[Rfam]
Nucleotides: 179
Base pairs, nucleotide, nucleotide: 006043007042008041009040011038013036014035015034016033017032018031065078066077067076068075070166071165072164073163074162079103080102081101082100083099084098085097086096088095089094106132107131108130109129110128111127112126113125114124135160136159137158138157139156140155141154142153143152144151145150
Number, partner (000 for none) and nucleotide at each position: 001000u002000a003000c004000g005000g006043c007042u008041u009040c010000c011038c012000c013036u014035g015034g016033c017032u018031a019000c020000u021000c022000c023000a024000u025000u026000u027000c028000c029000a030000a031018u032017a033016g034015c035014c036013a037000u038011g039000c040009g041008g042007g043006g044000c045000c046000c047000a048000g049000a050000g051000a052000a053000g054000g055000a056000g057000g058000a059000a060000a061000a062000g063000g064000a065078c066077c067076g068075c069000c070166g071165g072164c073163c074162g075068g076067c077066g078065g079103u080102g081101c082100g083099g084098c085097a086096g087000u088095g089094u090000g091000g092000a093000g094089a095088c096086c097085u098084g099083c100082c101081g102080u103079a104000a105000a106132c107131c108130u109129g110128u111127u112126c113125g114124g115000g116000u117000u118000c119000u120000g121000c122000u123000c124114c125113c126112g127111g128110g129109c130108g131107g132106g133000a134000a135160g136159g137158c138157c139156u140155u141154u142153u143152u144151g145150c146000g147000g148000a149000g150145g151144c152143g153142g154141g155140a156139a157138g158137g159136u160135c161000a162074c163073g164072g165071c166070c167000a168000a169000g170000g171000u172000g173000u174000a175000u176000g177000g178000c179000a